ZMP/ZTP riboswitch aptamer (pfl RNA motif): a 76-nucleotide RNA from Streptomyces globosus.

RNA sequence: GUCGCGGGCCGUGACUGGCGUUCGGGUGGAUCACCACCGGGGAGCGGCCCGGCGUACGACCGUACGCCCGGCGUAC
Number, nucleotide and partner (000 for none) at each position: 001g000002u000003c000004g000005c051006g050007g049008g048009c047010c046011g045012u044013g000014a000015c041016u040017g068018g067019c066020g065021u064022u000023c000024g000025g000026g037027u036028g035029g034030a000031u000032c000033a000034c029035c028036a027037c026038c000039g000040g016041g015042g000043a000044g012045c011046g010047g009048c008049c007050c006051g005052g000053c000054g000055u000056a000057c000058g000059a000060c000061c071062g000063u000064a021065c020066g019067c018068c017069c000070g000071g061072c000073g000074u000075a000076c000
Source information:
NCBI's taxonomy places the organism under Bacteria, Actinomycetota, Actinomycetes, Kitasatosporales, Streptomyces.